[Rfam]
RNA sequence: ACUCCCGCAUCGGGAGAGACUGUCGAAACAACAGACAGCGCCGAAGGAGCAACCACCCCGGAAACUCUCAGGCCAAAGGACCGAUGCAGGCAG
Numbered sequence: 001a002c003u004c005c006c007g008c009a010u011c012g013g014g015a016g017a018g019a020c021u022g023u024c025g026a027a028a029c030a031a032c033a034g035a036c037a038g039c040g041c042c043g044a045a046g047g048a049g050c051a052a053c054c055a056c057c058c059c060g061g062a063a064a065c066u067c068u069c070a071g072g073c074c075a076a077a078g079g080a081c082c083g084a085u086g087c088a089g090g091c092a093g
Base pairs, nucleotide, nucleotide: 007087008086009085010084011083012082013081020038021037022036023035040073041072042071043069044068047067048066049065053061054060
The record is a 93-nucleotide RNA sequence from Limnohabitans sp. 2KL-17, which matches "Glycine riboswitch aptamer" in Rfam. The source organism's lineage runs through Bacteria, Pseudomonadati, Pseudomonadota, Betaproteobacteria and Limnohabitans. The family has 44 seed sequences and 9,425 matches in Rfam 15.1.